[Rfam]
RNA: mir-7 microRNA precursor family
RNA sequence: GAUCCUAGUGCUGUGUGGAAGACUAGUGAUUUUGUUGUGAUGCUGAGCAAUGAGAAUAACAACAAGUCCCAGUCUGCCUCUCAGCACAGGGCA
Numbered sequence: 001g002a003u004c005c006u007a008g009u010g011c012u013g014u015g016u017g018g019a020a021g022a023c024u025a026g027u028g029a030u031u032u033u034g035u036u037g038u039g040a041u042g043c044u045g046a047g048c049a050a051u052g053a054g055a056a057u058a059a060c061a062a063c064a065a066g067u068c069c070c071a072g073u074c075u076g077c078c079u080c081u082c083a084g085c086a087c088a089g090g091g092c093a
Base pairs, nucleotide, nucleotide: 003091004090005089006088008087009086011084012083013082015080017078018077020075021074022073023072024071026070028068029067030066031065032064034063035062036061037060038059